[Rfam]
Shown here is a 74-nucleotide RNA sequence from Vulpes vulpes, a member of the family "U1A polyadenylation inhibition element (PIE)". From the family's description: This family represents the U1A polyadenylation inhibition element (PIE). PIE is a regulatory RNA which is responsible for the regulation of the length of the polyA tail of the U1A pre-mRNA. The PIE is located in the U1A mRNA 3' UTR. PIE adopts a U-shaped structure, with binding sites for a single U1A protein at each bend and when complexed with the two proteins it blocks activity of poly(A) polymerase (PAP), and inhibits its activity. For this family Rfam cites "Global and Local Dynamics of the U1A Polyadenylation Inhibition Element (PIE) RNA and PIE RNA-U1A Complexes" (Clerte and Hall, Biochemistry, 2004). By type it is a cis-regulatory element. Gene Ontology term of the family: regulation of mRNA polyadenylation.

RNA sequence: CCACACAGCAUUGUACCCAGAGUGUGUCCCCAGACAUUGCACCUGGCACUGUUAGGCCGGAAUUAGAGUGGCUU
Numbered sequence: 001c002c003a004c005a006c007a008g009c010a011u012u013g014u015a016c017c018c019a020g021a022g023u024g025u026g027u028c029c030c031c032a033g034a035c036a037u038u039g040c041a042c043c044u045g046g047c048a049c050u051g052u053u054a055g056g057c058c059g060g061a062a063u064u065a066g067a068g069u070g071g072c073u074u
Base pairs, nucleotide, nucleotide: 005052006051007050008049017046018045019044020043022035023034025032026031